Rfam assigns this 129-nucleotide RNA from Dipodomys ordii to the family "Small nucleolar RNA SNORA40". On this family, see Ofengand and Bakin, J Mol Biol 1997: "Mapping to nucleotide resolution of pseudouridine residues in large subunit ribosomal RNAs from representative eukaryotes, prokaryotes, archaebacteria, mitochondria and chloroplasts". Taxonomically the source falls in Dipodomys (Eukaryota, Sarcopterygii, Amniota, Euarchontoglires). By type it is an H/ACA-box small nucleolar RNA. Pairs were carried over by alignment from the consensus structure, which was predicted with RNAalifold. The snoRNA ACA 40 belongs to the H/ACA family of snoRNAs and guides the pseudouridylation of 28S rRNA subunit at position U4565.

RNA sequence: AGCACUUGUGUGUGUGUCUUUGUUUAAUUUGUAACAAAGCCUUACAGACAGGUGCAAACAGUAAAUCCUCUUUUGCAACCCAGAACUCAUCACUGAUAUGAGAUUUUGGUACAUGUAAGAAGUGAUAUG
Numbered sequence: 001a002g003c004a005c006u007u008g009u010g011u012g013u014g015u016g017u018c019u020u021u022g023u024u025u026a027a028u029u030u031g032u033a034a035c036a037a038a039g040c041c042u043u044a045c046a047g048a049c050a051g052g053u054g055c056a057a058a059c060a061g062u063a064a065a066u067c068c069u070c071u072u073u074u075g076c077a078a079c080c081c082a083g084a085a086c087u088c089a090u091c092a093c094u095g096a097u098a099u100g101a102g103a104u105u106u107u108g109g110u111a112c113a114u115g116u117a118a119g120a121a122g123u124g125a126u127a128u129g
Stems, first nucleotide, its partner, number of pairs: 002055008011046001016041001018039006028033001065126003069122001071120005081108005086102005